[Rfam]
RNA sequence: CUCCCCGAAAGCUAUUGAGGUAGCGCCUCGUGUCUCACCCCCGGGGGUAGAGCACUGUUUCGGCUAGGGGGCCACACCGGCUUACCAAACCGAGGCAAACUCCGAAUACCGGGGAGUGCAAUCACGGGAGACAGACGGCGGGCGCUAAGGUUCGUCGUCGAGAGGGAAACAGCCCAGACCGCCAGCUAAGGUCCCAAAAUCACGGCUAAGUGGGAAACGAUGUGGGAAGGCUAAGACAGCCAGGAGGUUGGCUUAGAAGCAGCCACCCUUUAAAGAAAGCGUAAUAGCUCACUGGUCGAGUCGGCCCGCGCGGAAAAUUUAACGGGGCUCAAGCCGUGUACCGAAGCUGCGGGUGCAGGCGCCCUUCGGGGCACCUGCGCGGUAGGGGAGCGUUCCGUAGGCCGUCGAAGGCAGGUCGAGAGGCCUGCUGGAGGUAUCGGAAGUGCGAAU
Numbered sequence: 001c002u003c004c005c006c007g008a009a010a011g012c013u014a015u016u017g018a019g020g021u022a023g024c025g026c027c028u029c030g031u032g033u034c035u036c037a038c039c040c041c042c043g044g045g046g047g048u049a050g051a052g053c054a055c056u057g058u059u060u061c062g063g064c065u066a067g068g069g070g071g072c073c074a075c076a077c078c079g080g081c082u083u084a085c086c087a088a089a090c091c092g093a094g095g096c097a098a099a100c101u102c103c104g105a106a107u108a109c110c111g112g113g114g115a116g117u118g119c120a121a122u123c124a125c126g127g128g129a130g131a132c133a134g135a136c137g138g139c140g141g142g143c144g145c146u147a148a149g150g151u152u153c154g155u156c157g158u159c160g161a162g163a164g165g166g167a168a169a170c171a172g173c174c175c176a177g178a179c180c181g182c183c184a185g186c187u188a189a190g191g192u193c194c195c196a197a198a199a200u201c202a203c204g205g206c207u208a209a210g211u212g213g214g215a216a217a218c219g220a221u222g223u224g225g226g227a228a229g230g231c232u233a234a235g236a237c238a239g240c241c242a243g244g245a246g247g248u249u250g251g252c253u254u255a256g257a258a259g260c261a262g263c264c265a266c267c268c269u270u271u272a273a274a275g276a277a278a279g280c281g282u283a284a285u286a287g288c289u290c291a292c293u294g295g296u297c298g299a300g301u302c303g304g305c306c307c308g309c310g311c312g313g314a315a316a317a318u319u320u321a322a323c324g325g326g327g328c329u330c331a332a333g334c335c336g337u338g339u340a341c342c343g344a345a346g347c348u349g350c351g352g353g354u355g356c357a358g359g360c361g362c363c364c365u366u367c368g369g370g371g372c373a374c375c376u377g378c379g380c381g382g383u384a385g386g387g388g389a390g391c392g393u394u395c396c397g398u399a400g401g402c403c404g405u406c407g408a409a410g411g412c413a414g415g416u417c418g419a420g421a422g423g424c425c426u427g428c429u430g431g432a433g434g435u436a437u438c439g440g441a442a443g444u445g446c447g448a449a450u
Base pairs, nucleotide, nucleotide: 001390002389003388004387005386006385011024012023013022014021015020026130027128028127029126030125031124032123035121036118037117038116039114040113041112042111043110044109050103051101052100056097057096058095060093061092062091063090067086068085069083070082071081072080073079134159135158136157137156138155139154140153141152142151143150164175165174166173179352180351181350182349184348185347186346190342191341192340199339201338202337203336204335205334206333218312219311222309223308224307225306226305229302230301231300239296240295241294242293243292245269246268247267250264251263252262270274275290279288280287353380354379355378356377357376358375359374391445393442394441395440396439397438401435402434403433410429411428412427413426414425415424416423417422
Background: Shown here is a 450-nucleotide part of an RNA from Inmirania thermothiophila, a member of the family "Bacterial large subunit ribosomal RNA". The family is grouped with related families in Rfam's "LSU clan". The organism belongs to Inmirania, within Bacteria. The match comes from Rfam's covariance-model search (2899 bits).